[Rfam]
RNA sequence: CCUACACUCAUGUGUGUAGGACCCUAAAGGAUCACCAUUAAAUUUGGCAUAGAUAUCUAGAAAAGUUAUCGCAUGGUGUGGGACUUAACUUUUUUAGAGACAUGUGUCAAAUUUAAUGGUGAUCAUUUGGGGUCUUACACACAUGGGUGUGGG
Numbered sequence: 001c002c003u004a005c006a007c008u009c010a011u012g013u014g015u016g017u018a019g020g021a022c023c024c025u026a027a028a029g030g031a032u033c034a035c036c037a038u039u040a041a042a043u044u045u046g047g048c049a050u051a052g053a054u055a056u057c058u059a060g061a062a063a064a065g066u067u068a069u070c071g072c073a074u075g076g077u078g079u080g081g082g083a084c085u086u087a088a089c090u091u092u093u094u095u096a097g098a099g100a101c102a103u104g105u106g107u108c109a110a111a112u113u114u115a116a117u118g119g120u121g122a123u124c125a126u127u128u129g130g131g132g133u134c135u136u137a138c139a140c141a142c143a144u145g146g147g148u149g150u151g152g153g
Stems, first nucleotide, its partner, number of pairs: 002152012015139014030124003034120018054100001056098013069081005
The family of this 153-nucleotide sequence from Amborella trichopoda is "MIR8565 microRNA precursor family". NCBI's taxonomy places the organism under Eukaryota, Streptophytina, Tracheophyta, Magnoliopsida, Amborella.